[Rfam]
RNA sequence: UGGGCGGUAUUUAUUAAAAGCUGUACCAAUAUUAUUUAUAUACAUAUAUCUGCUUAUAUCAUUUGAAUAAGACAGUCAA
Numbered sequence: 001u002g003g004g005c006g007g008u009a010u011u012u013a014u015u016a017a018a019a020g021c022u023g024u025a026c027c028a029a030u031a032u033u034a035u036u037u038a039u040a041u042a043c044a045u046a047u048a049u050c051u052g053c054u055u056a057u058a059u060c061a062u063u064u065g066a067a068u069a070a071g072a073c074a075g076u077c078a079a
Stems, first nucleotide, its partner, number of pairs: 001028003004024005010019002050075003053071005059066002
pan motif: a 79-nucleotide RNA sequence from Clostridium luticellarii. It is annotated as a cis-regulatory element. Taxonomically the source falls in Clostridium (Bacteria, Clostridia, Eubacteriales, Clostridiaceae). A search with the family's covariance model found it, with a score of 45 bits.